RNA sequence: UAGCGCAUUGGUAGCUACGAACCAAGGGCGGUAGCGUG
Numbered sequence: 001u002a003g004c005g006c007a008u009u010g011g012u013a014g015c016u017a018c019g020a021a022c023c024a025a026g027g028g029c030g031g032u033a034g035c036g037u038g
Stems, first nucleotide, its partner, number of pairs: 008025005
RNA: JUMPstart RNA